A member of the RNA family "mir-7 microRNA precursor family" from Araneus ventricosus, 86 nucleotides long.
Pairs were carried over by alignment from the consensus structure, which was predicted with PFOLD.
A search with the family's covariance model found it, with a score of 54 bits.
This family represents the microRNA (miRNA) precursor mir-7.
Rfam links the family to the GO terms RISC complex and miRNA-mediated post-transcriptional gene silencing.
RNA sequence: CGUCCUUUCCUGUCUGGAAGACCAGAGAUUUUGUUGUUCUGUAUUUGAGAAACAAAAAGAUCUCUGUCUUCUGAUAGUAGAGGAAA
Numbered sequence: 001c002g003u004c005c006u007u008u009c010c011u012g013u014c015u016g017g018a019a020g021a022c023c024a025g026a027g028a029u030u031u032u033g034u035u036g037u038u039c040u041g042u043a044u045u046u047g048a049g050a051a052a053c054a055a056a057a058a059g060a061u062c063u064c065u066g067u068c069u070u071c072u073g074a075u076a077g078u079a080g081a082g083g084a085a086a
Stems, first nucleotide, its partner, number of pairs: 003084006010077005016071002019069004025064005030058002034055005